[Rfam]
RNA sequence: UUAUUAUAUUUGAAACAUAAUUAUGCAAACAACAAACAAUCUUACUUGGUGGUGGAAUAACUCUCGACAAAAAUCGUGAGCUAAGCACUAUUUGGUAUAUAUCAUACAAAAGGCUUGUC
Numbered sequence: 001u002u003a004u005u006a007u008a009u010u011u012g013a014a015a016c017a018u019a020a021u022u023a024u025g026c027a028a029a030c031a032a033c034a035a036a037c038a039a040u041c042u043u044a045c046u047u048g049g050u051g052g053u054g055g056a057a058u059a060a061c062u063c064u065c066g067a068c069a070a071a072a073a074u075c076g077u078g079a080g081c082u083a084a085g086c087a088c089u090a091u092u093u094g095g096u097a098u099a100u101a102u103c104a105u106a107c108a109a110a111a112g113g114c115u116u117g118u119c
Stems, first nucleotide, its partner, number of pairs: 036102001038100001043097004048092002051089004058083002061080003066075002